A member of the RNA family "Eukaryotic large subunit ribosomal RNA" from Haemaphysalis longicornis, 519 nucleotides of a longer RNA.
Lineage of the source: Eukaryota > Panarthropoda > Ixodoidea > Haemaphysalinae > Haemaphysalis.

RNA sequence: CGGGUGGGCCCUCGAAGCUCGAAAGCGGUGGGAUUCAGUCUCCGGACGAUCGCGGAGCCGGCGGCGUCAGGUAAACGGUCCCCUUCGGGGGACUGUUCCGGCUGCUGGCACGCAGACGCGGUCUCCGGGGUGCGCACUUCCCACCGCCGGUAGGACGCCGCGACGGACGCGGGUCAAAGGGAACAAGCACGACUUUGAGUCCGGCAGUGGAGGUGACCUGCCCGUCUCUUCGGAGACGGCACGCGGGAGUUAUACCACGCCGUGCACGAAAAGUUCGUCACCCCGUCCAGGCCCCAUGGGCUUCUCCCGGUUGUCGGGAGGCCCGAACGAUGACGCCCUCCGGAAACGGAGCGGAGAACCCGCUGGGCAAGCUUGUCGUCUCCUGCUGUCCGGGUUGGUCCCGCGGCGGCGGGUUGGCCGGCGAGAAGCCUCUGCGAGCGGGGCUAUUCUCCCGCGGAGGCGCUAUCGUGGUUUGCGGCGAGUAGGUCGGUAACCCACCCGACCCGUCUUGAAACACGG
Numbered sequence: 001c002g003g004g005u006g007g008g009c010c011c012u013c014g015a016a017g018c019u020c021g022a023a024a025g026c027g028g029u030g031g032g033a034u035u036c037a038g039u040c041u042c043c044g045g046a047c048g049a050u051c052g053c054g055g056a057g058c059c060g061g062c063g064g065c066g067u068c069a070g071g072u073a074a075a076c077g078g079u080c081c082c083c084u085u086c087g088g089g090g091g092a093c094u095g096u097u098c099c100g101g102c103u104g105c106u107g108g109c110a111c112g113c114a115g116a117c118g119c120g121g122u123c124u125c126c127g128g129g130g131u132g133c134g135c136a137c138u139u140c141c142c143a144c145c146g147c148c149g150g151u152a153g154g155a156c157g158c159c160g161c162g163a164c165g166g167a168c169g170c171g172g173g174u175c176a177a178a179g180g181g182a183a184c185a186a187g188c189a190c191g192a193c194u195u196u197g198a199g200u201c202c203g204g205c206a207g208u209g210g211a212g213g214u215g216a217c218c219u220g221c222c223c224g225u226c227u228c229u230u231c232g233g234a235g236a237c238g239g240c241a242c243g244c245g246g247g248a249g250u251u252a253u254a255c256c257a258c259g260c261c262g263u264g265c266a267c268g269a270a271a272a273g274u275u276c277g278u279c280a281c282c283c284c285g286u287c288c289a290g291g292c293c294c295c296a297u298g299g300g301c302u303u304c305u306c307c308c309g310g311u312u313g314u315c316g317g318g319a320g321g322c323c324c325g326a327a328c329g330a331u332g333a334c335g336c337c338c339u340c341c342g343g344a345a346a347c348g349g350a351g352c353g354g355a356g357a358a359c360c361c362g363c364u365g366g367g368c369a370a371g372c373u374u375g376u377c378g379u380c381u382c383c384u385g386c387u388g389u390c391c392g393g394g395u396u397g398g399u400c401c402c403g404c405g406g407c408g409g410c411g412g413g414u415u416g417g418c419c420g421g422c423g424a425g426a427a428g429c430c431u432c433u434g435c436g437a438g439c440g441g442g443g444c445u446a447u448u449c450u451c452c453c454g455c456g457g458a459g460g461c462g463c464u465a466u467c468g469u470g471g472u473u474u475g476c477g478g479c480g481a482g483u484a485g486g487u488c489g490g491u492a493a494c495c496c497a498c499c500c501g502a503c504c505c506g507u508c509u510u511g512a513a514a515c516a517c518g519g
Base pairs, nucleotide, nucleotide: 001501002500003499004498005497006496007495008494010490011489017151019150020149021148025144156480157479158478159477160476161475162474163473504519505518506517507516